The family of this 101-nucleotide sequence from Sulfurimonas aquatica is "Guanidine-I riboswitch aptamer".
Taxonomically the source falls in Sulfurimonas (Bacteria, Campylobacterota, Epsilonproteobacteria, Sulfurimonadaceae).
Rfam's curators write: This family represents a conserved RNA structure found upstream of the ykkC and yxkD genes in Bacillus subtilis and related genes in other bacteria.
Rfam 15.1 lists 1,509 matches to the family in 1,281 species.

RNA sequence: CUAAUAGACAACUAGGGUUCCGAUGAAAUAUUUCAUGUCUGGUCCGAGAGUUGUCAACCUUUUGAAUAGAGGUUACACGGAGGGAUAAAAGCCCGGGAGGU
Numbered sequence: 001c002u003a004a005u006a007g008a009c010a011a012c013u014a015g016g017g018u019u020c021c022g023a024u025g026a027a028a029u030a031u032u033u034c035a036u037g038u039c040u041g042g043u044c045c046g047a048g049a050g051u052u053g054u055c056a057a058c059c060u061u062u063u064g065a066a067u068a069g070a071g072g073u074u075a076c077a078c079g080g081a082g083g084g085a086u087a088a089a090a091g092c093c094c095g096g097g098a099g100g101u
Base pairs, nucleotide, nucleotide: 007055008054009053010052011051012050015045016044020042021041022039023036024035025034026033027032056074057073058072059071060070061069062068076096078099082094083093084092